[Rfam]
RNA sequence: UCGCGUGGCGAGUGGGGAGUCCCUGGCGUUACUAACCCUAAUGGCUGCUGCCGCGCUCCCCGCACCCGCCCGCUGUUUUACUCGCUGACUUUCAGCGGGCGAGGGGAGUAGCCCGGGGGGUGGGGGGUGUGUGUGUGAGGGGGGGGGGAAAGAAGGGGGUCCGCCAUCCAAAAAACGUCAGCGAGGGGGCUCCUCACCCCGGCCCGCCCUGGGGUCCCUGUCCCCCUCCCCGCCCUCACCCCUCGCAGCCGGGGACCCGCCGCGGAGGCUCCCGCCGCCGCACCCGUCCGGAGGCCGCGGUCGGCCGGUUCCCGCCACUGCCGCCGCGAAGAGUUCGUCUCUGUCAGCCUCGGCGGCGGCCGGGAGCGGAGGGGCGGCGCCCCCGCGCCGUACGGGGUUUGGGGGGGGGCCGGGCCCCCAGCAGAGCAAAACGGGAGCGGCGCCCCCGGGCCAACCGCCGCGCUUCCCUCAGCCGUGGGGCGCGCGGCCGGCGCCGCUCCGACACGC
Numbered sequence: 001u002c003g004c005g006u007g008g009c010g011a012g013u014g015g016g017g018a019g020u021c022c023c024u025g026g027c028g029u030u031a032c033u034a035a036c037c038c039u040a041a042u043g044g045c046u047g048c049u050g051c052c053g054c055g056c057u058c059c060c061c062g063c064a065c066c067c068g069c070c071c072g073c074u075g076u077u078u079u080a081c082u083c084g085c086u087g088a089c090u091u092u093c094a095g096c097g098g099g100c101g102a103g104g105g106g107a108g109u110a111g112c113c114c115g116g117g118g119g120g121u122g123g124g125g126g127g128u129g130u131g132u133g134u135g136u137g138a139g140g141g142g143g144g145g146g147g148g149a150a151a152g153a154a155g156g157g158g159g160u161c162c163g164c165c166a167u168c169c170a171a172a173a174a175a176c177g178u179c180a181g182c183g184a185g186g187g188g189g190c191u192c193c194u195c196a197c198c199c200c201g202g203c204c205c206g207c208c209c210u211g212g213g214g215u216c217c218c219u220g221u222c223c224c225c226c227u228c229c230c231c232g233c234c235c236u237c238a239c240c241c242c243u244c245g246c247a248g249c250c251g252g253g254g255a256c257c258c259g260c261c262g263c264g265g266a267g268g269c270u271c272c273c274g275c276c277g278c279c280g281c282a283c284c285c286g287u288c289c290g291g292a293g294g295c296c297g298c299g300g301u302c303g304g305c306c307g308g309u310u311c312c313c314g315c316c317a318c319u320g321c322c323g324c325c326g327c328g329a330a331g332a333g334u335u336c337g338u339c340u341c342u343g344u345c346a347g348c349c350u351c352g353g354c355g356g357c358g359g360c361c362g363g364g365a366g367c368g369g370a371g372g373g374g375c376g377g378c379g380c381c382c383c384c385g386c387g388c389c390g391u392a393c394g395g396g397g398u399u400u401g402g403g404g405g406g407g408g409g410c411c412g413g414g415c416c417c418c419c420a421g422c423a424g425a426g427c428a429a430a431a432c433g434g435g436a437g438c439g440g441c442g443c444c445c446c447c448g449g450g451c452c453a454a455c456c457g458c459c460g461c462g463c464u465u466c467c468c469u470c471a472g473c474c475g476u477g478g479g480g481c482g483c484g485c486g487g488c489c490g491g492c493g494c495c496g497c498u499c500c501g502a503c504a505c506g507c
Stems, first nucleotide, its partner, number of pairs: 004206002007203001010199001012197006019190005055109005067101009084182006090175003209421006253381002257377005268367007277357005296328005302323004307316003330342004435499010458487005465480004

Overview: Vertebrate telomerase RNA: a 507-nucleotide RNA from Strix occidentalis. The family's consensus secondary structure is taken from published work. Lineage of the source: Eukaryota > Amniota > Sauria > Saurischia > Strix occidentalis. Its family is annotated with telomerase activity, telomerase catalytic core complex and telomere maintenance via telomerase in the Gene Ontology. Rfam 15.1 lists 523 matches to the family in 477 species. From the family's description: Telomerase is a ribonucleoprotein reverse transcriptase that synthesises telomeric DNA. Telomerase RNAs differ greatly in sequence and structure between vertebrates, ciliates and yeasts, but they share a 5' pseudoknot structure close to the template sequence. Vertebrate telomerase RNAs have a 3' H/ACA snoRNA-like domain.